[Rfam]
MIR7486 microRNA precursor family: an 87-nucleotide RNA from Gossypium mustelinum.
RNA sequence: CUCAAGAAAGCGCUUUGCCUACGUGGACCGAAAAAGCUUCCUUGAGGGCGCGCUUUCUGUCCAUGUAGGCAAAGCGCUUCCUUGAAG
Numbered sequence: 001c002u003c004a005a006g007a008a009a010g011c012g013c014u015u016u017g018c019c020u021a022c023g024u025g026g027a028c029c030g031a032a033a034a035a036g037c038u039u040c041c042u043u044g045a046g047g048g049c050g051c052g053c054u055u056u057c058u059g060u061c062c063a064u065g066u067a068g069g070c071a072a073a074g075c076g077c078u079u080c081c082u083u084g085a086a087g
Stems, first nucleotide, its partner, number of pairs: 002085005008079014023064006030057004036051002040047002
Background: Rfam 15.1 lists 10,132 matches to the family in 36 species.